[Rfam]
RNA: IMES-5 RNA
RNA sequence: CAUAUUUCGGAAAGAAUUGGACCUCGAGACCCAAAUCAGGAAGAAAAUGGACAGAAGAAGAAGGGUGAAAAAGUUAUUUUUUAACGAUUUGUGAGCUGAAAAGGGUAUUGGCCACACAGUGAGAAACCCGCACUGGGCCCUUCAACUUCG
Numbered sequence: 001c002a003u004a005u006u007u008c009g010g011a012a013a014g015a016a017u018u019g020g021a022c023c024u025c026g027a028g029a030c031c032c033a034a035a036u037c038a039g040g041a042a043g044a045a046a047a048u049g050g051a052c053a054g055a056a057g058a059a060g061a062a063g064g065g066u067g068a069a070a071a072a073g074u075u076a077u078u079u080u081u082u083a084a085c086g087a088u089u090u091g092u093g094a095g096c097u098g099a100a101a102a103g104g105g106u107a108u109u110g111g112c113c114a115c116a117c118a119g120u121g122a123g124a125a126a127c128c129c130g131c132a133c134u135g136g137g138c139c140c141u142u143c144a145a146c147u148u149c150g
Stems, first nucleotide, its partner, number of pairs: 001049003005046004015036001017034004054149004060143006074084003090116004095112005117135005